[Rfam]
RNA sequence: GAGUUCAUUUCCGUGGCGAGGUUAAAGAGUUCACCUCUGGAACCUUAGCGAAAGCGACAUGCUCGCAGUCCUGACUUGUCAGGAUCAGGAGCGGGGUGUGAAAUCGCCCGGAGUCACGGGGAUGAGACCCGAAACUAGGCGAUCUAGCCCGGGACAGGGUGAAGCCGAUCUUCUGAUUGGUGGAGGCCCGAACCGGUCCUGCCGUGCAAUGCGGUCGGAUGAUCCUGGGCUAGGGGCGAAAGACCUAUCUAGCCUAGCGACAGCUGGUU
Numbered sequence: 001g002a003g004u005u006c007a008u009u010u011c012c013g014u015g016g017c018g019a020g021g022u023u024a025a026a027g028a029g030u031u032c033a034c035c036u037c038u039g040g041a042a043c044c045u046u047a048g049c050g051a052a053a054g055c056g057a058c059a060u061g062c063u064c065g066c067a068g069u070c071c072u073g074a075c076u077u078g079u080c081a082g083g084a085u086c087a088g089g090a091g092c093g094g095g096g097u098g099u100g101a102a103a104u105c106g107c108c109c110g111g112a113g114u115c116a117c118g119g120g121g122a123u124g125a126g127a128c129c130c131g132a133a134a135c136u137a138g139g140c141g142a143u144c145u146a147g148c149c150c151g152g153g154a155c156a157g158g159g160u161g162a163a164g165c166c167g168a169u170c171u172u173c174u175g176a177u178u179g180g181u182g183g184a185g186g187c188c189c190g191a192a193c194c195g196g197u198c199c200u201g202c203c204g205u206g207c208a209a210u211g212c213g214g215u216c217g218g219a220u221g222a223u224c225c226u227g228g229g230c231u232a233g234g235g236g237c238g239a240a241a242g243a244c245c246u247a248u249c250u251a252g253c254c255u256a257g258c259g260a261c262a263g264c265u266g267g268u269u
Base pairs, nucleotide, nucleotide: 005125006124007123008122009121010120011119012118013117014116015115016114017113020044021043022042023041026038027037028036029035048055049054061092062091063090064089068085069084070083071082072081073080074079095108096107097106098105128267129266131264135257136256137255138254139253140252144233145232146231147230148229149228150227151226152225153224154223155221157189158188159187160186164181165180166179167178168177169176170175193218194217195216196215198214199213201212202211235245236244
Rfam assigns this 269-nucleotide part of an RNA from candidate division MSBL1 archaeon SCGC-AAA382A20 to the family "Archaeal large subunit ribosomal RNA".
The source organism's lineage runs through Archaea, Methanobacteriati, Methanobacteriota and candidate division MSBL1.
A search with the family's covariance model found it, with a score of 2782 bits.
The family is grouped with related families in Rfam's "LSU clan".
The family has 91 seed sequences and 2,955 matches in Rfam 15.1.